[Rfam]
RNA sequence: UCUUUUCUCACAACAACAGAUUUGUGCCCAGCGAUCCCUUCAACCAACUGCUUGCAGCUGCGUUGUAAGGUUGAUUGCUGAGGCAGUUCGAUGUCUAUGGAGCCAUCAGCCUUUACGGGCCAACAUGGUGUCAAUCAUCCGAUCGACAAAUCUCAGAGCAAUUGGUCCUUGGGAAGCCUGAGUUCGCCUUCACGGGCUUGAACUCGGUGGACUGAGUGUACUUAAAAGGCGUUACAUUCCACUUCUUUGCCGACCGGGGCCAUUGGUCCAUGAGGUUCGAGACAAACCGUAACUUGCCUACAUUU
Numbered sequence: 001u002c003u004u005u006u007c008u009c010a011c012a013a014c015a016a017c018a019g020a021u022u023u024g025u026g027c028c029c030a031g032c033g034a035u036c037c038c039u040u041c042a043a044c045c046a047a048c049u050g051c052u053u054g055c056a057g058c059u060g061c062g063u064u065g066u067a068a069g070g071u072u073g074a075u076u077g078c079u080g081a082g083g084c085a086g087u088u089c090g091a092u093g094u095c096u097a098u099g100g101a102g103c104c105a106u107c108a109g110c111c112u113u114u115a116c117g118g119g120c121c122a123a124c125a126u127g128g129u130g131u132c133a134a135u136c137a138u139c140c141g142a143u144c145g146a147c148a149a150a151u152c153u154c155a156g157a158g159c160a161a162u163u164g165g166u167c168c169u170u171g172g173g174a175a176g177c178c179u180g181a182g183u184u185c186g187c188c189u190u191c192a193c194g195g196g197c198u199u200g201a202a203c204u205c206g207g208u209g210g211a212c213u214g215a216g217u218g219u220a221c222u223u224a225a226a227a228g229g230c231g232u233u234a235c236a237u238u239c240c241a242c243u244u245c246u247u248u249g250c251c252g253a254c255c256g257g258g259g260c261c262a263u264u265g266g267u268c269c270a271u272g273a274g275g276u277u278c279g280a281g282a283c284a285a286a287c288c289g290u291a292a293c294u295u296g297c298c299u300a301c302a303u304u305u
Base pairs, nucleotide, nucleotide: 018153019152020151021150022149023148024147025146026084027083028082029080030079031078033076034075035074036073037070038069039068040067042064043063048057049056050055092145093144094142095141098133099132100131102129103128104127105126106125164223165222176208177207178206180205181204182203183202184201185200186197187196188195189194228298229297230296231293232292233291234290235289244282245281246280249276250275251274258268259267260266261265